Notes: A member of the RNA family "c-di-GMP-I riboswitch aptamer" from Candidatus Brocadiaceae bacterium S225, 146 nucleotides long. Its Rfam clan is "c-di-GMP_I riboswitch clan". The match comes from Rfam's covariance-model search (42 bits).
RNA sequence: AAACGACAAAGGCUAACUCCGGGUGAUCGGGGGGCGCAAAGUAGAGGAUCUUUAUCGCUUACGACUGCUAUAGAACUGUGUGGAAAGGGAAAAUUCCUGAACCGUUCAAUUGUAUAGCUUCGGAAAAAGACAGCCCUACUGCCAAA
Numbered sequence: 001a002a003a004c005g006a007c008a009a010a011g012g013c014u015a016a017c018u019c020c021g022g023g024u025g026a027u028c029g030g031g032g033g034g035c036g037c038a039a040a041g042u043a044g045a046g047g048a049u050c051u052u053u054a055u056c057g058c059u060u061a062c063g064a065c066u067g068c069u070a071u072a073g074a075a076c077u078g079u080g081u082g083g084a085a086a087g088g089g090a091a092a093a094u095u096c097c098u099g100a101a102c103c104g105u106u107c108a109a110u111u112g113u114a115u116a117g118c119u120u121c122g123g124a125a126a127a128a129g130a131c132a133g134c135c136c137u138a139c140u141g142c143c144a145a146a
Stems, first nucleotide, its partner, number of pairs: 012037002017032006040140004046135002049130005